[Rfam]
RNA sequence: UUAAGUUAAUAACAUAAAAUAUGUUAUCUCCUUUAAUUAUACGCAUUCGCUUCAAUAAGUGGUAAAACCCUAGGCAUUUUCUACUUGAGGUUGAUGCGUAUGAUUAAAGGAGAUGCCAUAUUUUAUGUGAUCAAAUUAACU
Numbered sequence: 001u002u003a004a005g006u007u008a009a010u011a012a013c014a015u016a017a018a019a020u021a022u023g024u025u026a027u028c029u030c031c032u033u034u035a036a037u038u039a040u041a042c043g044c045a046u047u048c049g050c051u052u053c054a055a056u057a058a059g060u061g062g063u064a065a066a067a068c069c070c071u072a073g074g075c076a077u078u079u080u081c082u083a084c085u086u087g088a089g090g091u092u093g094a095u096g097c098g099u100a101u102g103a104u105u106a107a108a109g110g111a112g113a114u115g116c117c118a119u120a121u122u123u124u125a126u127g128u129g130a131u132c133a134a135a136u137u138a139a140c141u
Stems, first nucleotide, its partner, number of pairs: 001139004006134002009131002012128012025115001028112020049091006